[Rfam]
The family of this 150-nucleotide RNA sequence from Salinisphaera hydrothermalis is "FMN riboswitch aptamer (RFN element)". Taxonomically the source falls in Salinisphaera hydrothermalis (Bacteria, Pseudomonadota, Salinisphaeraceae, Salinisphaera). Rfam links the family to the GO term FMN binding. A search with the family's covariance model found it, with a score of 109 bits.
RNA sequence: AGUUGUCUUCAGGGCGGGGUGCAAUUCCCCACCGGUGGUAGGGCCGAGAUUCGGCCGAGCCCACGAGCGCUUCCGAUCCCCGUCGGAAGGUCAGCAGAUCUGGUCAGAGUCCAGAGCCGACGGUGAUAGUCCGGAUGAAAGAAGACGCGU
Number, nucleotide and partner (000 for none) at each position: 001a000002g000003u000004u147005g146006u145007c144008u143009u142010c141011a000012g000013g000014g000015c000016g000017g029018g028019g027020u000021g000022c000023a000024a000025u000026u000027c019028c018029c017030c000031a130032c129033c119034g118035g064036u063037g062038g061039u000040a000041g000042g000043g000044c000045c000046g000047a000048g000049a000050u000051u000052c000053g000054g000055c000056c000057g000058a000059g117060c116061c038062c037063a036064c035065g000066a000067g095068c094069g000070c000071u000072u000073c000074c000075g000076a000077u000078c000079c000080c000081c000082g000083u000084c000085g000086g000087a000088a000089g000090g000091u000092c000093a000094g068095c067096a000097g000098a000099u115100c114101u113102g112103g111104u000105c000106a000107g000108a000109g000110u000111c103112c102113a101114g100115a099116g060117c059118c034119g033120a000121c133122g132123g131124u000125g000126a000127u000128a000129g032130u031131c123132c122133g121134g000135a000136u000137g000138a000139a000140a000141g010142a009143a008144g007145a006146c005147g004148c000149g000150u000